This 250-nucleotide part of an RNA from Halomicrobium mukohataei belongs to the Rfam family "Archaeal large subunit ribosomal RNA". Rfam 15.1 lists 2,955 matches to the family in 1,139 species.

[Rfam]
RNA sequence: GGAAUCUGACGGGAACGAUCGUAUAGUACGAGAGGAACUCCGAUUGGUGACCACUGGUGUACCGGUUGUCCGAGAGGGCACGUGCCGGGCAGCCACGUCACACGGGGUAAGAGCUGAAUGCAUCUAAGCUCGAAACCCACCUGGAAAAGAGAUUCCACCGAGGUCACUCGUAGAAGACGAGAUAGAUAGACUCGGGGUGUACGCGUCGAGGCAACGAGACGUUGAGCCCGCGAGCACUAAUCGACCGAAG
Numbered sequence: 001g002g003a004a005u006c007u008g009a010c011g012g013g014a015a016c017g018a019u020c021g022u023a024u025a026g027u028a029c030g031a032g033a034g035g036a037a038c039u040c041c042g043a044u045u046g047g048u049g050a051c052c053a054c055u056g057g058u059g060u061a062c063c064g065g066u067u068g069u070c071c072g073a074g075a076g077g078g079c080a081c082g083u084g085c086c087g088g089g090c091a092g093c094c095a096c097g098u099c100a101c102a103c104g105g106g107g108u109a110a111g112a113g114c115u116g117a118a119u120g121c122a123u124c125u126a127a128g129c130u131c132g133a134a135a136c137c138c139a140c141c142u143g144g145a146a147a148a149g150a151g152a153u154u155c156c157a158c159c160g161a162g163g164u165c166a167c168u169c170g171u172a173g174a175a176g177a178c179g180a181g182a183u184a185g186a187u188a189g190a191c192u193c194g195g196g197g198u199g200u201a202c203g204c205g206u207c208g209a210g211g212c213a214a215c216g217a218g219a220c221g222u223u224g225a226g227c228c229c230g231c232g233a234g235c236a237c238u239a240a241u242c243g244a245c246c247g248a249a250g
Base pairs, nucleotide, nucleotide: 001156002155003154004153005152006151007150010143011142012141013140016046017045018044019043020042021041023039047101048100049099050098051097055095056094057093062088063087064086065085066084067080068079069078070077071076104138105137106136111131112130113129114128115127162246163245164244165243167181168180169179170178187239188238189237191234192233193232194231195229196228197227203222204221205220206219207218210215

Description:
Rfam's curators put it in the seed alignment. The source organism's lineage runs through Archaea, Methanobacteriati, Halobacteria, Haloarculaceae and Halomicrobium mukohataei.